Cyano-1 RNA: a 76-nucleotide sequence from Waterburya agarophytonicola. NCBI's taxonomy places the organism under Bacteria, Bacillati, Cyanobacteriota, Cyanophyceae, Waterburya agarophytonicola. Rfam classes the family as a small RNA.

RNA sequence: UUGUGUGUGAGGAGUAAGUGUAAGAGAAAAAGGUUUUGGGGUCGAAACACGGCAAGACUCCCGAAACCUUUUUCAU
Number, nucleotide and partner (000 for none) at each position: 001u000002u000003g000004u000005g000006u000007g000008u000009g000010a000011g000012g000013a000014g000015u075016a000017a000018g000019u000020g000021u000022a000023a000024g000025a000026g074027a073028a072029a071030a070031a000032g000033g067034u066035u000036u000037u000038g062039g061040g060041g058042u057043c056044g000045a000046a000047a000048c000049a000050c000051g000052g000053c000054a000055a000056g043057a042058c041059u000060c040061c039062c038063g000064a000065a000066a034067c033068c000069u000070u030071u029072u028073u027074c026075a015076u000